The family of this 69-nucleotide RNA from Sporolactobacillus inulinus is "Bacillaceae-1 RNA".
[Rfam]
RNA sequence: UGGAAAGGAACUACCACUAAAGGCGGUGCCAUUCCUGUGCACAACGCGGAAGUGACCGCAUCCUGCGGA
Numbered sequence: 001u002g003g004a005a006a007g008g009a010a011c012u013a014c015c016a017c018u019a020a021a022g023g024c025g026g027u028g029c030c031a032u033u034c035c036u037g038u039g040c041a042c043a044a045c046g047c048g049g050a051a052g053u054g055a056c057c058g059c060a061u062c063c064u065g066c067g068g069a
Base pairs, nucleotide, nucleotide: 011052012051014049015048017046026042027041028040029039030037056068057067058066059065